Background: Rfam assigns this 83-nucleotide sequence from Maricaulis salignorans to the family "tRNA". The organism belongs to Maricaulis, within Bacteria. The base pairs follow the family's consensus structure, which is taken from published work. It scores 63 bits against the family's covariance model. Rfam classes the family as a transfer RNA. Rfam describes the family as follows. Transfer RNA (tRNA) molecules are approximately 80 nucleotides in length. Their secondary structure includes four short double-helical elements and three loops (D, anti-codon, and T loops). Further hydrogen bonds mediate the characteristic L-shaped molecular structure. tRNAs have two regions of fundamental functional importance: the anti-codon, which is responsible for specific mRNA codon recognition, and the 3' end, to which the tRNAs corresponding amino acid is attached (by aminoacyl-tRNA synthetases). tRNAs cope with the degeneracy of the genetic code in two manners: having more than one tRNA (with a specific anti-codon) for a particular amino acid; and 'wobble' base-pairing, i.e. permitting non-standard base-pairing at the 3rd anti-codon position.
RNA sequence: GCGGGCGUGGCGGAAUGGUAGACGCAACAGACUUAAAAUCUGUCGAUUGAAAGAUCGUGCCGGUUCGAGUCCGGCCGCCCGCA
Numbered sequence: 001g002c003g004g005g006c007g008u009g010g011c012g013g014a015a016u017g018g019u020a021g022a023c024g025c026a027a028c029a030g031a032c033u034u035a036a037a038a039u040c041u042g043u044c045g046a047u048u049g050a051a052a053g054a055u056c057g058u059g060c061c062g063g064u065u066c067g068a069g070u071c072c073g074g075c076c077g078c079c080c081g082c083a
Base pairs, nucleotide, nucleotide: 001082002081003080004079005078006077007076010025011024012023027043028042029041030040031039059075060074061073062072063071